[Rfam]
RNA: Makes More Granules Regulator RNA (mmgR)
Organism: Sphingomonas melonis
RNA sequence: GGGACGGGCCUUUCAGGCAUCCUCUCCUAAAAACUUUCCCGGGCUGGCGUUUUCGCCGGCCCUUUUUUUUGUGUUUU
Numbered sequence: 001g002g003g004a005c006g007g008g009c010c011u012u013u014c015a016g017g018c019a020u021c022c023u024c025u026c027c028u029a030a031a032a033a034c035u036u037u038c039c040c041g042g043g044c045u046g047g048c049g050u051u052u053u054c055g056c057c058g059g060c061c062c063u064u065u066u067u068u069u070u071g072u073g074u075u076u077u
Base pairs, nucleotide, nucleotide: 008018009017010016011015041062042061043060044059045058046057047056048055049054